[Rfam]
RNA sequence: AUGCGACACUCUGGAGAGUCUUUCCGCCGGCCGAAAGCAUGUGCAGGAAAGCGCCGAAGGUGUACAACAGCCCGGACAUUUCCGGCGGGGCUGUCUAUCUCUCAGGCAAACGGACAGGGCAUAUUUC
Numbered sequence: 001a002u003g004c005g006a007c008a009c010u011c012u013g014g015a016g017a018g019u020c021u022u023u024c025c026g027c028c029g030g031c032c033g034a035a036a037g038c039a040u041g042u043g044c045a046g047g048a049a050a051g052c053g054c055c056g057a058a059g060g061u062g063u064a065c066a067a068c069a070g071c072c073c074g075g076a077c078a079u080u081u082c083c084g085g086c087g088g089g090g091c092u093g094u095c096u097a098u099c100u101c102u103c104a105g106g107c108a109a110a111c112g113g114a115c116a117g118g119g120c121a122u123a124u125u126u127c
Stems, first nucleotide, its partner, number of pairs: 006122001009119005020051006053107003056103002060101001062099001066094001
A member of the RNA family "Glycine riboswitch aptamer" from Qiania dongpingensis, 127 nucleotides long. The source organism's lineage runs through Bacteria, Bacillati, Clostridia, Lachnospiraceae and Qiania.